[Rfam]
The family of this 160-nucleotide RNA from Medicago truncatula is "Small nucleolar RNA snoR2/U65". Gene Ontology terms of the family: RNA processing and nucleolus. On this family, see Shaw et al., J Cell Sci 1998: "Localization and processing from a polycistronic precursor of novel snoRNAs in maize". The source organism's lineage runs through Eukaryota, Streptophytina, Tracheophyta, Pentapetalae and Medicago. The base pairs follow the family's consensus structure, which was predicted with WAR.
RNA sequence: GGUCCGAUGCCACGUCUAUGGUAGCUAAACAUGAGCUCUGACCAAAGAUGCUAUGAUUGGACCAAAAUCAAGAGUGCUUGUCAAUUGUUUCGCAUUUUGAUAGGAAUCUGUUGAUCUUAUAUACGAUGAUUUUGCAGAGCCGAUUUGUGCGAUUACAUUU
Numbered sequence: 001g002g003u004c005c006g007a008u009g010c011c012a013c014g015u016c017u018a019u020g021g022u023a024g025c026u027a028a029a030c031a032u033g034a035g036c037u038c039u040g041a042c043c044a045a046a047g048a049u050g051c052u053a054u055g056a057u058u059g060g061a062c063c064a065a066a067a068u069c070a071a072g073a074g075u076g077c078u079u080g081u082c083a084a085u086u087g088u089u090u091c092g093c094a095u096u097u098u099g100a101u102a103g104g105a106a107u108c109u110g111u112u113g114a115u116c117u118u119a120u121a122u123a124c125g126a127u128g129a130u131u132u133u134g135c136a137g138a139g140c141c142g143a144u145u146u147g148u149g150c151g152a153u154u155a156c157a158u159u160u
Base pairs, nucleotide, nucleotide: 002062003061004060005059006058007057008056009054013050014049015048016047017046020043021042022041024036025035026034090152091151092150093149094148103141104140108137109136110135113131114130115129116128